[Rfam]
Nucleotides: 548
Stems, first nucleotide, its partner, number of pairs: 009026002012023002028538004033534006040409002043406003046402002048367001053365003057362003062107003067104002070101002077094003081090003114320003123245008133237002138233007146180001148178002155170006186211004191206002194203003216225003246292003253283003258280008295317004299310004322343005345356004373399001375398003381394005412442004422433004446479001448474005456465001482527005493522005503510002
Number, partner (000 for none) and nucleotide at each position: 001000g002000g003000a004000a005000u006000g007000u008000a009026g010025a011000g012023u013022u014000u015000g016000a017000u018000a019000c020000c021000u022013g023012g024000g025010u026009c027000a028538g029537g030536a031535u032000a033534a034533a035532c036531g037530c038529u039000g040409g041408u042000a043406g044405c045404g046402c047401a048367c049000a050000u051000a052000a053365g054364a055363c056000a057362u058361g059360c060000a061000a062107g063106u064105c065000g066000a067104a068103c069000g070101a071100a072000c073000u074000u075000a076000a077094c078093c079092a080000u081090u082089a083088g084000u085000u086000u087000a088083c089082u090081a091000u092079u093078g094077g095000a096000g097000c098000g099000g100071u101070u102000a103068g104067u105064g106063g107062c108000g109000g110000a111000c112000u113000g114320g115319u116318g117000a118000g119000u120000a121000a122000c123245a124244c125243g126242u127241a128240a129239g130238c131000a132000a133237c134236c135000u136000g137000c138233c139232u140231a141230u142229c143228a144227g145000a146180g147000g148178g149177g150000a151000a152000c153000a154000a155170c156169a157168g158167u159166u160165a161000g162000a163000a164000a165160u166159g167158a168157c169156u170155g171000c172000u173000a174000a175000u176000a177149c178148c179000g180146c181000a182000u183000a184000u185000g186211c187210c188209u189208u190000a191206a192205u193000c194203u195202u196201c197000a198000c199000a200000u201196g202195g203194a204000g205192a206191u207000a208189g209188a210187g211186g212000g213000a214000a215000a216225g217224g218223a219000g220000c221000a222000a223218u224217c225216c226000g227144c228143u229142g230141a231140u232139a233138g234000a235000u236134g237133g238130g239129c240128u241127u242126g243125c244124g245123u246292c247291u248290g249000a250000u251000u252000a253283g254282c255281u256000a257000g258280u259279a260278g261277g262276u263275g264274g265273g266000g267000u268000a269000a270000a271000g272000g273265c274264u275263u276262a277261c278260c279259u280258a281255g282254g283253c284000a285000a286000c287000g288000a289000u290248c291247a292246g293000u294000a295317g296316c297315c298314g299310g300309a301308c302307u303000g304000a305000g306000a307302g308301g309300u310299u311000g312000g313000a314298c315297g316296g317295c318116c319115a320114c321000a322343u323342u324341g325340g326339g327000a328000c329000u330000g331000a332000g333000a334000u335000a336000c337000g338000g339326c340325c341324c342323a343322g344000a345356c346355u347354c348353c349000u350000a351000c352000g353348g354347g355346a356345g357000g358000c359000a360059g361058c362057a363055g364054u365053c366000g367048g368000g369000a370000a371000u372000a373399u374000u375398g376397c377396g378000c379000a380000a381394u382393g383392g384391a385390g386000g387000a388000a389000a390385c391384u392383c393382u394381g395000a396377c397376g398375c399373a400000g401047u402046g403000a404045c405044g406043c407000c408041g409040c410000g411000u412442g413441c414440a415439g416000g417000a418000a419000g420000a421000a422433g423432g424431u425430u426000u427000u428000c429000g430425g431424a432423u433422u434000g435000u436000a437000a438000a439415c440414u441413g442412c443000u444000u445000u446479a447000g448474a449473c450472a451471g452470g453000g454000a455000a456465g457000a458000a459000a460000a461000a462000g463000g464000a465456c466000a467000g468000u469000a470452c471451c472450u473449g474448u475000a476000g477000a478000a479446u480000a481000a482527g483526c484525u485524c486523c487000g488000g489000c490000u491000a492000a493522c494521u495520a496519c497518g498000u499000g500000c501000c502000a503510g504509c505000a506000g507000c508000c509504g510503c511000g512000g513000u514000a515000a516000u517000a518497c519496g520495u521494a522493g523486g524485g525484a526483g527482c528000a529038a530037g531036c532035g533034u534033u535031a536030u537029c538028c539000g540000g541000a542000u543000u544000u545000a546000u547000u548000g
Rfam assigns this 548-nucleotide part of an RNA from an uncultured bacterium to the family "Bacterial small subunit ribosomal RNA". Rfam 15.1 lists 42,628 matches to the family in 10,626 species. The family's consensus secondary structure is taken from published work. It is one of the family's seed sequences. A reference for the family is Cannone et al. (2002), "The comparative RNA web (CRW) site: an online database of comparative sequence and structure information for ribosomal, intron, and other RNAs", BMC Bioinformatics.